[Rfam]
Source information:
Rfam assigns this 72-nucleotide RNA from Cnephaeus nilssonii to the family "mir-9209 microRNA precursor family". The organism belongs to Cnephaeus, within Eukaryota. Gene Ontology terms of the family: miRNA-mediated post-transcriptional gene silencing and RISC complex.
RNA sequence: AGAUCAGUGGUCGGCAAACCACAGCUCACGAGCCACAUGCGGCUCAUGAGCUGCGGUUUGCCGCUCUGUUGA
Numbered sequence: 001a002g003a004u005c006a007g008u009g010g011u012c013g014g015c016a017a018a019c020c021a022c023a024g025c026u027c028a029c030g031a032g033c034c035a036c037a038u039g040c041g042g043c044u045c046a047u048g049a050g051c052u053g054c055g056g057u058u059u060g061c062c063g064c065u066c067u068g069u070u071g072a
Base pairs, nucleotide, nucleotide: 003070005068006067007066009065010064012063013062014061015060016059017058018057019056020055022053023052024051025050026049027048028047031044032043033042034041